bablM sRNA: a 70-nucleotide RNA from Pelagibacterales bacterium SAG-MED15. On this family, see Meyer et al., BMC Genomics 2009: "Identification of candidate structured RNAs in the marine organism 'Candidatus Pelagibacter ubique'". It is annotated as a small RNA.
RNA sequence: GACUAGAAAAAAUUCAAUCUCAAGUUGACUGGGACUCUUAGCUAGAGUCUAAUUAAUUUUUUAAAAAUGA
Numbered sequence: 001g002a003c004u005a006g007a008a009a010a011a012a013u014u015c016a017a018u019c020u021c022a023a024g025u026u027g028a029c030u031g032g033g034a035c036u037c038u039u040a041g042c043u044a045g046a047g048u049c050u051a052a053u054u055a056a057u058u059u060u061u062u063a064a065a066a067a068u069g070a
Stems, first nucleotide, its partner, number of pairs: 014028005032050003036046003
The family's consensus secondary structure is taken from published work.
The source organism's lineage runs through Bacteria, Pseudomonadati, Pseudomonadota, Alphaproteobacteria and Candidatus Pelagibacterales.